[Rfam]
RNA: ZMP/ZTP riboswitch aptamer (pfl RNA motif)
RNA sequence: CAGAAGCUGCAUGACUGGCGGAAAGUAGGAUUACCUACAGGGAGUGCAGUGAAGUGAGAAGCCGACCGCCUGGGCAGCCUGA
Numbered sequence: 001c002a003g004a005a006g007c008u009g010c011a012u013g014a015c016u017g018g019c020g021g022a023a024a025g026u027a028g029g030a031u032u033a034c035c036u037a038c039a040g041g042g043a044g045u046g047c048a049g050u051g052a053a054g055u056g057a058g059a060a061g062c063c064g065a066c067c068g069c070c071u072g073g074g075c076a077g078c079c080u081g082a
Stems, first nucleotide, its partner, number of pairs: 006050007015041002017070005025038004061075003